[Rfam]
RNA: Y RNA
RNA sequence: GGCUGGUCCGAAGGUCAUGAGCUAUCUCCAUUGAUCACAGUCAGUUGCAGAUGGAACUCCUUUUCUACUCUUUCCCCCCUUCUCACUACUGCACUUGACUAGUCUUAA
Numbered sequence: 001g002g003c004u005g006g007u008c009c010g011a012a013g014g015u016c017a018u019g020a021g022c023u024a025u026c027u028c029c030a031u032u033g034a035u036c037a038c039a040g041u042c043a044g045u046u047g048c049a050g051a052u053g054g055a056a057c058u059c060c061u062u063u064u065c066u067a068c069u070c071u072u073u074c075c076c077c078c079c080u081u082c083u084c085a086c087u088a089c090u091g092c093a094c095u096u097g098a099c100u101a102g103u104c105u106u107a108a
Stems, first nucleotide, its partner, number of pairs: 001104008010096002014092002018085004040069001043066002